[Rfam]
Description:
The family of this 276-nucleotide sequence from Sciurus vulgaris is "Mason-Pfizer monkey virus packaging signal". The family's RNA type in Rfam is cis-regulatory element.
RNA sequence: UGGUGCCCAAUGUAGGGUGUGGAUAAGGGGGAAUUCGCGAGGGAAGAGGCAUUUAAUGGUUCGGCCAAACAAAGCAGAAAUCAGUUCAAGAAGGAUAUCUGUGGGAGCCUGCUGCGCCAUUCUUAAAAGUACAGUAGCGCUUAACUAUGGGACAAGAAUUAAGUAAGCAUAAAGAUUUUGUUAAGCAAUUAAAAGAAGCUUUAAAGACACGGGGAGUAAAGGUUAAGAGUAAUGAUCUUUUUAAGUUUUUUGACCUUAUUAAGGACACCUGUCCGU
Numbered sequence: 001u002g003g004u005g006c007c008c009a010a011u012g013u014a015g016g017g018u019g020u021g022g023a024u025a026a027g028g029g030g031g032a033a034u035u036c037g038c039g040a041g042g043g044a045a046g047a048g049g050c051a052u053u054u055a056a057u058g059g060u061u062c063g064g065c066c067a068a069a070c071a072a073a074g075c076a077g078a079a080a081u082c083a084g085u086u087c088a089a090g091a092a093g094g095a096u097a098u099c100u101g102u103g104g105g106a107g108c109c110u111g112c113u114g115c116g117c118c119a120u121u122c123u124u125a126a127a128a129g130u131a132c133a134g135u136a137g138c139g140c141u142u143a144a145c146u147a148u149g150g151g152a153c154a155a156g157a158a159u160u161a162a163g164u165a166a167g168c169a170u171a172a173a174g175a176u177u178u179u180g181u182u183a184a185g186c187a188a189u190u191a192a193a194a195g196a197a198g199c200u201u202u203a204a205a206g207a208c209a210c211g212g213g214g215a216g217u218a219a220a221g222g223u224u225a226a227g228a229g230u231a232a233u234g235a236u237c238u239u240u241u242u243a244a245g246u247u248u249u250u251u252g253a254c255c256u257u258a259u260u261a262a263g264g265a266c267a268c269c270u271g272u273c274c275g276u
Stems, first nucleotide, its partner, number of pairs: 006031003013025002035049002038046001085129002094122001095120002100116005135155001137153001140151004160203003163199002210252008220238006261276001263274004

Record summary:
This family represents a group of sequences that are related to the Mason-Pfizer monkey virus (MPMV) packaging signal.